[Rfam]
RNA sequence: CCCCCGUCUUACCUCCCUGGACGGGCUUCGCCCGGCGAAGUUAAAGCGGCCCCGGUGGGGCCGCUCUUUUUAU
Numbered sequence: 001c002c003c004c005c006g007u008c009u010u011a012c013c014u015c016c017c018u019g020g021a022c023g024g025g026c027u028u029c030g031c032c033c034g035g036c037g038a039a040g041u042u043a044a045a046g047c048g049g050c051c052c053c054g055g056u057g058g059g060g061c062c063g064c065u066c067u068u069u070u071u072a073u
Stems, first nucleotide, its partner, number of pairs: 003025006028038004045065008
RNA: Burkholderia RNA 7 (anti-hemB)